[Rfam]
RNA sequence: UGGAAGUUCCAUCUAUAAAUGGAUAAUACUUUUGUAUUUAUAUGAAUUUUUAAAGGUAGCAAUCCCCUAAUAUCUUGUUCUAAGAUUUUGGAUAUUGGGGGAUUACUACCUU
Dot-bracket structure: .......(((((......))))).............................(((((((.(((((.(((..((((..............))))..))).))))).)))))))

Rfam assigns this 112-nucleotide RNA sequence from Dendrobium catenatum to the family "Plastid-psbA-1 3UTR RNA". The literature on the family includes a 2023 paper in Plant Commun by Richter et al., "Retrograde signaling in plants: A critical review focusing on the GUN pathway and beyond". From the family's description: Plastid psbA-1 is a non-coding RNA (ncRNA) present in plastids. It was identified in inverted repeat sequences in the 3 prime untranslate region (3UTR) of photosystem II quinone-binding protein (psbA). By type it is a cis-regulatory element. Lineage of the source: Eukaryota > Streptophyta > Spermatophyta > Mesangiospermae > Dendrobium. The base pairs follow the family's consensus structure, which was predicted with LocARNA. The match comes from Rfam's covariance-model search (72 bits).